[Rfam]
RNA sequence: UACUGACAUCAGUGAUUCAUUCUGCGAGCCCUGGCCAACGGCCAGAUAGGCAUUCAUGCCCAACUCUUUCAUCUGCUGCUCACCGAUAACGCGGGUAGUAAUAUUUUUGCUGUAGUUAUCGGCCAGCUGACGCGCCUGGGAAGCCAGGUAAGCCGCGUUGCAGAUAUUGGGUGGCAUAUUGCCGAGAUCUUUCGC
Numbered sequence: 001u002a003c004u005g006a007c008a009u010c011a012g013u014g015a016u017u018c019a020u021u022c023u024g025c026g027a028g029c030c031c032u033g034g035c036c037a038a039c040g041g042c043c044a045g046a047u048a049g050g051c052a053u054u055c056a057u058g059c060c061c062a063a064c065u066c067u068u069u070c071a072u073c074u075g076c077u078g079c080u081c082a083c084c085g086a087u088a089a090c091g092c093g094g095g096u097a098g099u100a101a102u103a104u105u106u107u108u109g110c111u112g113u114a115g116u117u118a119u120c121g122g123c124c125a126g127c128u129g130a131c132g133c134g135c136c137u138g139g140g141a142a143g144c145c146a147g148g149u150a151a152g153c154c155g156c157g158u159u160g161c162a163g164a165u166a167u168u169g170g171g172u173g174g175c176a177u178a179u180u181g182c183c184g185a186g187a188u189c190u191u192u193c194g195c
Base pairs, nucleotide, nucleotide: 005189006188012032014030016028017027018026020024033043034042035041050059051058062077064075078135079134081132084129085128087126091123092122094120095119096118097117099112100111102109103108136163137162138161140159141158143156144155167186168185170183171182172181
Yersinia sRNA 276: a 195-nucleotide RNA from [Pantoea] beijingensis. The match comes from Rfam's covariance-model search (167 bits). Rfam classes the family as an antisense RNA. Lineage of the source: Bacteria > Pseudomonadati > Pseudomonadota > Erwiniaceae > Erwinia. A reference for the family is Nuss et al. (2015), "Transcriptomic profiling of Yersinia pseudotuberculosis reveals reprogramming of the Crp regulon by temperature and uncovers Crp as a master regulator of small RNAs", PLoS Genet.